[Rfam]
RNA sequence: CACGUGCUCCGGGGUCGGUGAGAAUCCGAACCGGCGGUGACAGUCCGCGAACUCGCGGUAUCCGACAGGAUGCUGCGGGUUGAUCCGGUGGAAUUCCGGAACCGACGGUGAUGCGACGAGCGAUCGUCGUCAGUCCGGAUGGGAGGAGGCACGCA
Numbered sequence: 001c002a003c004g005u006g007c008u009c010c011g012g013g014g015u016c017g018g019u020g021a022g023a024a025u026c027c028g029a030a031c032c033g034g035c036g037g038u039g040a041c042a043g044u045c046c047g048c049g050a051a052c053u054c055g056c057g058g059u060a061u062c063c064g065a066c067a068g069g070a071u072g073c074u075g076c077g078g079g080u081u082g083a084u085c086c087g088g089u090g091g092a093a094u095u096c097c098g099g100a101a102c103c104g105a106c107g108g109u110g111a112u113g114c115g116a117c118g119a120g121c122g123a124u125c126g127u128c129g130u131c132a133g134u135c136c137g138g139a140u141g142g143g144a145g146g147a148g149g150c151a152c153g154c155a
Stems, first nucleotide, its partner, number of pairs: 003153005008147003016028003032104002034048004043102002051080007084100005106137003
This 155-nucleotide RNA sequence from Microbacterium sp. Gd 4-13 belongs to the Rfam family "FMN riboswitch aptamer (RFN element)". Rfam describes the family as follows. The RFN element is a highly conserved domain that is found frequently in the 5'-untranslated regions of prokaryotic mRNAs that encode for flavin mononucleotide (FMN) biosynthesis and transport proteins. A search with the family's covariance model found it, with a score of 77 bits.